[Rfam]
RNA sequence: AAGGGCAUGGAAAGGGAAACCGCAGGUGUCCCUUCCUGAGGAAAGUCCCCCCUCCUUCGGGCAGCCGGCCUCGCGCAAGCGGUGGUCCUGAGAGGGACGGCAACGGAGCAGAAACGACACAGCCCGCGGAGCAGGAUGAUUCCCUGCGGAUGACAUUUCCGUGGGAGCUGUUGAAACGGCCGACCCCGGCGGAGCAAGCCCAAAUCGUGCCUAUGAGUUGCCCGACGAGGCGCAGGUAGGGUGCUUAGUCGGAUGCCGCCACGAGGGGGCACCAAGGUUCCCCCUUCUAACCCCUUCCUUUGAGGGAAGAGGGUAGAGGGAGAAACCGUAGGUGUCUCCUCAGAACAGAAGGGGGCUUACUCCUGGCACUU
Numbered sequence: 001a002a003g004g005g006c007a008u009g010g011a012a013a014g015g016g017a018a019a020c021c022g023c024a025g026g027u028g029u030c031c032c033u034u035c036c037u038g039a040g041g042a043a044a045g046u047c048c049c050c051c052c053u054c055c056u057u058c059g060g061g062c063a064g065c066c067g068g069c070c071u072c073g074c075g076c077a078a079g080c081g082g083u084g085g086u087c088c089u090g091a092g093a094g095g096g097a098c099g100g101c102a103a104c105g106g107a108g109c110a111g112a113a114a115c116g117a118c119a120c121a122g123c124c125c126g127c128g129g130a131g132c133a134g135g136a137u138g139a140u141u142c143c144c145u146g147c148g149g150a151u152g153a154c155a156u157u158u159c160c161g162u163g164g165g166a167g168c169u170g171u172u173g174a175a176a177c178g179g180c181c182g183a184c185c186c187c188g189g190c191g192g193a194g195c196a197a198g199c200c201c202a203a204a205u206c207g208u209g210c211c212u213a214u215g216a217g218u219u220g221c222c223c224g225a226c227g228a229g230g231c232g233c234a235g236g237u238a239g240g241g242u243g244c245u246u247a248g249u250c251g252g253a254u255g256c257c258g259c260c261a262c263g264a265g266g267g268g269g270c271a272c273c274a275a276g277g278u279u280c281c282c283c284c285u286u287c288u289a290a291c292c293c294c295u296u297c298c299u300u301u302g303a304g305g306g307a308a309g310a311g312g313g314u315a316g317a318g319g320g321a322g323a324a325a326c327c328g329u330a331g332g333u334g335u336c337u338c339c340u341c342a343g344a345a346c347a348g349a350a351g352g353g354g355g356c357u358u359a360c361u362c363c364u365g366g367c368a369c370u371u
Base pairs, nucleotide, nucleotide: 003037004036005035043358044357045356047355048354049353050352051351052194053193054192055191057225058224059223060222061221062220064190065189066188067187068186069084071082072081073080085098086097087096088095089094099185100184104182105181106180120170121169122168123165124164125163126162127161128160129159130158141150142149198242199241200240201239207233208232209231210230211229
Shown here is a 371-nucleotide RNA sequence from Candidatus Aciduliprofundum boonei, a member of the family "Archaeal RNase P". It is annotated as a ribozyme. Rfam's curators write: Ribonuclease P (RNase P) is a ubiquitous endoribonuclease, found in archaea, bacteria and eukarya as well as chloroplasts and mitochondria. Taxonomically the source falls in Candidatus Aciduliprofundum boonei (Archaea, Methanobacteriati, Thermoplasmatota, Candidatus Aciduliprofundum). On this family, see Brown, Nucleic Acids Res 1999: "The Ribonuclease P Database".